Annotation
Rfam assigns this 74-nucleotide RNA from Hymenobacter taeanensis to the family "Fluoride riboswitch aptamer (crcB RNA motif)". The source organism's lineage runs through Bacteria, Bacteroidota, Cytophagia, Cytophagales and Hymenobacter.

RNA sequence: UGAGCAUAUGGUGAUGGAUUUCCACCGCGAACCGCCAGCAGCCCCGGCUCUGCGCUGAUGAUUCCUACUGAACG
Number, nucleotide and partner (000 for none) at each position: 001u000002g000003a000004g000005c000006a000007u000008a000009u000010g026011g025012u024013g023014a000015u000016g065017g064018a063019u000020u061021u060022c000023c013024a012025c011026c010027g000028c000029g000030a000031a000032c000033c000034g055035c054036c000037a000038g000039c000040a000041g000042c000043c000044c000045c000046g000047g000048c000049u000050c000051u000052g000053c000054g035055c034056u000057g000058a000059u000060g021061a020062u000063u018064c017065c016066u000067a000068c000069u000070g000071a000072a000073c000074g000